[Rfam]
RNA sequence: CAGGAAAAAGGCAAACCCGUCGUGAGGCGGGGACGCAAAGCCACGGGACUCCCUGAGUCAGCCGGGUUACCCUUA
Numbered sequence: 001c002a003g004g005a006a007a008a009a010g011g012c013a014a015a016c017c018c019g020u021c022g023u024g025a026g027g028c029g030g031g032g033a034c035g036c037a038a039a040g041c042c043a044c045g046g047g048a049c050u051c052c053c054u055g056a057g058u059c060a061g062c063c064g065g066g067u068u069a070c071c072c073u074u075a
Stems, first nucleotide, its partner, number of pairs: 003072002011036002016031006034061001039068004044064003047059003
Rfam assigns this 75-nucleotide sequence from a Candidatus Sericytochromatia bacterium to the family "c-di-GMP-I-GGC riboswitch aptamer". The family has 40 seed sequences and 1,298 matches in Rfam 15.1. The match comes from Rfam's covariance-model search (71 bits). A reference for the family is Weinberg et al. (2017), "Bioinformatic analysis of riboswitch structures uncovers variant classes with altered ligand specificity", Proc Natl Acad Sci U S A.